Rfam assigns this 116-nucleotide sequence from Paenibacillus sp. FSL H7-0737 to the family "ylbH leader". Pairs were carried over by alignment from the consensus structure. Gene Ontology term of the family: regulation of gene expression.
RNA sequence: AUAAUAACUUUUAAUGUCUUUAAACAUAAAUUCGGGGCCCUAUCUCUAGGGCCCCUUUCAUGGGAGAGGAGAAACCGGACGAAGAGCUUAUGGGGAAACGUAAGCCUGCUCCGCGG
Numbered sequence: 001a002u003a004a005u006a007a008c009u010u011u012u013a014a015u016g017u018c019u020u021u022a023a024a025c026a027u028a029a030a031u032u033c034g035g036g037g038c039c040c041u042a043u044c045u046c047u048a049g050g051g052c053c054c055c056u057u058u059c060a061u062g063g064g065a066g067a068g069g070a071g072a073a074a075c076c077g078g079a080c081g082a083a084g085a086g087c088u089u090a091u092g093g094g095g096a097a098a099c100g101u102a103a104g105c106c107u108g109c110u111c112c113g114c115g116g
Base pairs, nucleotide, nucleotide: 011030012029014027015026016025017024031064032063033062034061036053037052038051039050040049041048076113077112078111079110081109083107084106086105087104088103089102090101
Rfam describes the family as follows. This family is a putative regulatory RNA structure that is found upstream of the ylbH gene in B. subtilis and related low GC Gram-positive bacteria. The literature on the family includes a 2004 paper in Proc Natl Acad Sci U S A by Barrick et al., "New RNA motifs suggest an expanded scope for riboswitches in bacterial genetic control".